[Rfam]
RNA sequence: UUUCUCGUGGUUCGAAAACCUCCCACAUAAAAAAACUAAGGAACA
Dot-bracket structure: ......((((.....[......))))..........]........